Shown here is a 105-nucleotide RNA from a Cytophagia bacterium, a member of the family "SAM riboswitch aptamer (S box leader)". It scores 76 bits against the family's covariance model. NCBI's taxonomy places the organism under Bacteria, Pseudomonadati, Bacteroidota, Cytophagia.

RNA sequence: UGCUUAUCAAGAAAGACGGAGGGACUAGGCCCGAAGAUGUCUUAGCAACCUGGGUAAUACCUGGUGCUAAUUCCUAGCUCCGAGCAUUCGGAGAAAAGAUGAGAA
Numbered sequence: 001u002g003c004u005u006a007u008c009a010a011g012a013a014a015g016a017c018g019g020a021g022g023g024a025c026u027a028g029g030c031c032c033g034a035a036g037a038u039g040u041c042u043u044a045g046c047a048a049c050c051u052g053g054g055u056a057a058u059a060c061c062u063g064g065u066g067c068u069a070a071u072u073c074c075u076a077g078c079u080c081c082g083a084g085c086a087u088u089c090g091g092a093g094a095a096a097a098g099a100u101g102a103g104a105a
Base pairs, nucleotide, nucleotide: 001105003103004102005101006100007099008098013043014042015041016040017039021032022031023030026076027075028074029073044068045067046066047065049064050063052061053060072097078093079092080091081090082089